Rfam assigns this 54-nucleotide sequence from Ameiurus melas to the family "UnaL2 LINE 3' element". It is annotated as a cis-regulatory element. For this family Rfam cites "Solution structure of an RNA stem-loop derived from the 3' conserved region of eel LINE UnaL2" (Baba et al., RNA, 2004). The eel long interspersed element (LINE) UnaL2 and its partner short interspersed element (SINE) share a conserved 3' tail containing a stem-loop that is critical for their retrotransposition. Pairs were carried over by alignment from the consensus structure, which is taken from published work. The match comes from Rfam's covariance-model search (56 bits). The source organism's lineage runs through Eukaryota, Bilateria, Otomorpha, Otophysi and Ameiurus.
RNA sequence: AAACAAGAUGAAUGCAAGUCGCUCUGGAUAAGGGCGUCUGCCAAAUGCCGUAAA
Number, nucleotide and partner (000 for none) at each position: 001a000002a000003a000004c000005a000006a000007g000008a000009u000010g000011a000012a000013u043014g041015c040016a039017a000018g000019u000020c036021g035022c034023u033024c032025u031026g000027g000028a000029u000030a000031a025032g024033g023034g022035c021036g020037u000038c000039u016040g015041c014042c000043a013044a000045a000046u000047g000048c000049c000050g000051u000052a000053a000054a000

Rfam 15.1 lists 493,311 matches to the family in 99 species.